SAM riboswitch aptamer (S box leader): a 107-nucleotide RNA from Andreesenia angusta.
Gene Ontology term of the family: regulation of gene expression.
The source organism's lineage runs through Bacteria, Bacillota, Tissierellia, Tissierellales and Andreesenia.
RNA sequence: UUCUUAUCUAGAGCGGUGGAGGGACUGGCCCUUUGAAGCCCGGCAACCACAGGUUUUGUGAAACCUGAAGGUGCUAAAUCCAGCAGGCAUAGCCUGAGAGAUGAGAG
Numbered sequence: 001u002u003c004u005u006a007u008c009u010a011g012a013g014c015g016g017u018g019g020a021g022g023g024a025c026u027g028g029c030c031c032u033u034u035g036a037a038g039c040c041c042g043g044c045a046a047c048c049a050c051a052g053g054u055u056u057u058g059u060g061a062a063a064c065c066u067g068a069a070g071g072u073g074c075u076a077a078a079u080c081c082a083g084c085a086g087g088c089a090u091a092g093c094c095u096g097a098g099a100g101a102u103g104a105g106a107g
Stems, first nucleotide, its partner, number of pairs: 001107008013041001015040003021031003025083004042075004047071002050067004079099001084096005
The SAM riboswitch is found upstream of a number of genes which code for proteins involved in methionine or cysteine biosynthesis in Gram-positive bacteria. The SAM riboswitch acts at the level of transcription termination control.